Source information
Shown here is a 128-nucleotide RNA from Liquorilactobacillus ghanensis, a member of the family "Enterococcus sRNA 68 (Lacto-3 RNA)". The literature on the family includes a 2015 paper in RNA by Innocenti et al., "Whole-genome mapping of 5' RNA ends in bacteria by tagged sequencing: a comprehensive view in Enterococcus faecalis". Rfam classes the family as a small RNA.
[Rfam]
RNA sequence: UGCGAUGAGUCGAGAAGAACCAGGUAAUGAUUUUCAUUAUUUUGCUGUGGCAAUUAAUGGUUCAAAUCGAAACGGAACACAGAUACCAGCGGAUUUUCUGGUGUGUUUGCUGCAAACAUUGUGGAGUG
Numbered sequence: 001u002g003c004g005a006u007g008a009g010u011c012g013a014g015a016a017g018a019a020c021c022a023g024g025u026a027a028u029g030a031u032u033u034u035c036a037u038u039a040u041u042u043u044g045c046u047g048u049g050g051c052a053a054u055u056a057a058u059g060g061u062u063c064a065a066a067u068c069g070a071a072a073c074g075g076a077a078c079a080c081a082g083a084u085a086c087c088a089g090c091g092g093a094u095u096u097u098c099u100g101g102u103g104u105g106u107u108u109g110c111u112g113c114a115a116a117c118a119u120u121g122u123g124g125a126g127u128g
Base pairs, nucleotide, nucleotide: 018062019061020060021059022058023041024040025039026038027037028036029035030034042053043052044051045050076107077106078105079104080103085102086101087100088099089098117128118127119126120125